[Rfam]
RNA sequence: AGUGCCUCUUUCUCCUGUCAUCCCAGUGCCCAGACACUGGGAUCCAGAAAUUUUAAUUGUAAGUAAGCAUACUGGGUUGAUAAGUAUAAAAGUAGCUAGAAAAUAAACAUUUUUGAUGAGAUUAUAUGGAAAACUGGAUGCCAGUGUCAAGCACUGGCAUGACACCCUUCACGGACUUUU
Numbered sequence: 001a002g003u004g005c006c007u008c009u010u011u012c013u014c015c016u017g018u019c020a021u022c023c024c025a026g027u028g029c030c031c032a033g034a035c036a037c038u039g040g041g042a043u044c045c046a047g048a049a050a051u052u053u054u055a056a057u058u059g060u061a062a063g064u065a066a067g068c069a070u071a072c073u074g075g076g077u078u079g080a081u082a083a084g085u086a087u088a089a090a091a092g093u094a095g096c097u098a099g100a101a102a103a104u105a106a107a108c109a110u111u112u113u114u115g116a117u118g119a120g121a122u123u124a125u126a127u128g129g130a131a132a133a134c135u136g137g138a139u140g141c142c143a144g145u146g147u148c149a150a151g152c153a154c155u156g157g158c159a160u161g162a163c164a165c166c167c168u169u170c171a172c173g174g175a176c177u178u179u180u
Stems, first nucleotide, its partner, number of pairs: 011175003016164006023157007033148008042139006
RNA: Wolbachia sRNA 46
Organism: Nephila pilipes